[Rfam]
RNA sequence: GGAAGUGACGCGGGGUGCCCGGCUCGCCGCCGGGCUGAGAGAGACCCGUCGAACCUGACCUAGUUCGGACUAGCGGAGGGACGUCGCAUGCCGUCGGU
Numbered sequence: 001g002g003a004a005g006u007g008a009c010g011c012g013g014g015g016u017g018c019c020c021g022g023c024u025c026g027c028c029g030c031c032g033g034g035c036u037g038a039g040a041g042a043g044a045c046c047c048g049u050c051g052a053a054c055c056u057g058a059c060c061u062a063g064u065u066c067g068g069a070c071u072a073g074c075g076g077a078g079g080g081a082c083g084u085c086g087c088a089u090g091c092c093g094u095c096g097g098u
Stems, first nucleotide, its partner, number of pairs: 006086005011048004016042001017035007054079003060073004